[Rfam]
RNA: Small nucleolar RNA SNORA40
RNA sequence: UGUAUAUGUGUGUUUUUGUUCAACUUGUGGACAGAGACUUAUAGAUAGGUGCAAAAAAUAAAUCCUCUUUUGCAACCCAGAACUCAUUGUGCAGUAUGAGUUUUGAUACAUAAAAGAAGGAAUAUG
Numbered sequence: 001u002g003u004a005u006a007u008g009u010g011u012g013u014u015u016u017u018g019u020u021c022a023a024c025u026u027g028u029g030g031a032c033a034g035a036g037a038c039u040u041a042u043a044g045a046u047a048g049g050u051g052c053a054a055a056a057a058a059u060a061a062a063u064c065c066u067c068u069u070u071u072g073c074a075a076c077c078c079a080g081a082a083c084u085c086a087u088u089g090u091g092c093a094g095u096a097u098g099a100g101u102u103u104u105g106a107u108a109c110a111u112a113a114a115a116g117a118a119g120g121a122a123u124a125u126g
Stems, first nucleotide, its partner, number of pairs: 001051003005047003009043001012038008024029001062123002065120002068117004078105010